[Rfam]
RNA sequence: AGCCAGUGAUGACAUUUCCUAAACCUUUUCUGACACCUCGUAUGAACUGCUGCGGCAGUACCUGAUUAUAUAUAUUCUCUGAGGCUC
Numbered sequence: 001a002g003c004c005a006g007u008g009a010u011g012a013c014a015u016u017u018c019c020u021a022a023a024c025c026u027u028u029u030c031u032g033a034c035a036c037c038u039c040g041u042a043u044g045a046a047c048u049g050c051u052g053c054g055g056c057a058g059u060a061c062c063u064g065a066u067u068a069u070a071u072a073u074a075u076u077c078u079c080u081g082a083g084g085c086u087c
Stems, first nucleotide, its partner, number of pairs: 001086004046059005
A member of the RNA family "Small nucleolar RNA SNORD60" from Synaphobranchus kaupii, 87 nucleotides long.
A reference for the family is Galardi et al. (2002), "Purified box C/D snoRNPs are able to reproduce site-specific 2'-O-methylation of target RNA in vitro", Mol Cell Biol.
The family's RNA type in Rfam is C/D-box small nucleolar RNA.
Its family is annotated with RNA processing and nucleolus in the Gene Ontology.
The base pairs follow the family's consensus structure, which was predicted with PFOLD.
Clan: SNORD60 clan.